[Rfam]
RNA sequence: GCGGAGACGCAUUUAGUUUCCGUUCACUCCUCACACCACAUUCCGCCUGGACUACUGUUCAGGCGGUU
Numbered sequence: 001g002c003g004g005a006g007a008c009g010c011a012u013u014u015a016g017u018u019u020c021c022g023u024u025c026a027c028u029c030c031u032c033a034c035a036c037c038a039c040a041u042u043c044c045g046c047c048u049g050g051a052c053u054a055c056u057g058u059u060c061a062g063g064c065g066g067u068u
Base pairs, nucleotide, nucleotide: 001023002022003021004020005019006018007017008016044065045064046063047062048061049060050059
RNA: Cyanobacterial functional RNA 1